[Rfam]
RNA: Small nucleolar RNA Z159/U59
Organism: Trifolium subterraneum
RNA sequence: UCCUCUGAUGAUGAUCAAACAAAUAACUUUGUCCGAGUUAUCCAUGCGGAAAUUAUUUGGAGACCUGAACUGAAGAGGC
Numbered sequence: 001u002c003c004u005c006u007g008a009u010g011a012u013g014a015u016c017a018a019a020c021a022a023a024u025a026a027c028u029u030u031g032u033c034c035g036a037g038u039u040a041u042c043c044a045u046g047c048g049g050a051a052a053u054u055a056u057u058u059g060g061a062g063a064c065c066u067g068a069a070c071u072g073a074a075g076a077g078g079c
Stems, first nucleotide, its partner, number of pairs: 003077004